[Rfam]
RNA sequence: CGGGGGUUGGAAUCACGAUGUUGUGGCCCCCGCUAGCGUUGAACUGGUGAUCACGGGGAUCUCCAUACACCAGUCGGUACAGCCGCGUCACUACUAAAGUAGGCCGCUAGGGGAUGCCCGCAUUGCUCCUAGCGCUCCGAAUUUUAUGCGUAGUGUCGCGCUGCACGCCGUGGAGGGGUGAGACUUGUUGGAAGUCUCAGAAGGUGCAGACGCCG
Numbered sequence: 001c002g003g004g005g006g007u008u009g010g011a012a013u014c015a016c017g018a019u020g021u022u023g024u025g026g027c028c029c030c031c032g033c034u035a036g037c038g039u040u041g042a043a044c045u046g047g048u049g050a051u052c053a054c055g056g057g058g059a060u061c062u063c064c065a066u067a068c069a070c071c072a073g074u075c076g077g078u079a080c081a082g083c084c085g086c087g088u089c090a091c092u093a094c095u096a097a098a099g100u101a102g103g104c105c106g107c108u109a110g111g112g113g114a115u116g117c118c119c120g121c122a123u124u125g126c127u128c129c130u131a132g133c134g135c136u137c138c139g140a141a142u143u144u145u146a147u148g149c150g151u152a153g154u155g156u157c158g159c160g161c162u163g164c165a166c167g168c169c170g171u172g173g174a175g176g177g178g179u180g181a182g183a184c185u186u187g188u189u190g191g192a193a194g195u196c197u198c199a200g201a202a203g204g205u206g207c208a209g210a211c212g213c214c215g
Stems, first nucleotide, its partner, number of pairs: 001032007043074006062174005085159003089155006161209006179199006
The family of this 215-nucleotide RNA sequence is "PAGEV RNA".